The family of this 94-nucleotide RNA sequence from Pseudomonas putida is "ivy-DE RNA".
[Rfam]
RNA sequence: UGACCAAGGGGUCGGGCUGCUCUGAUUGUUACAGGAUCGGAGUGGCCUAGGGGUACAGGGAGUGCCUCCAGUAAUGGGCCGGGUCAGGAAAGGC
Numbered sequence: 001u002g003a004c005c006a007a008g009g010g011g012u013c014g015g016g017c018u019g020c021u022c023u024g025a026u027u028g029u030u031a032c033a034g035g036a037u038c039g040g041a042g043u044g045g046c047c048u049a050g051g052g053g054u055a056c057a058g059g060g061a062g063u064g065c066c067u068c069c070a071g072u073a074a075u076g077g078g079c080c081g082g083g084u085c086a087g088g089a090a091a092g093g094c
Stems, first nucleotide, its partner, number of pairs: 001086005010080004014048005020042008050068007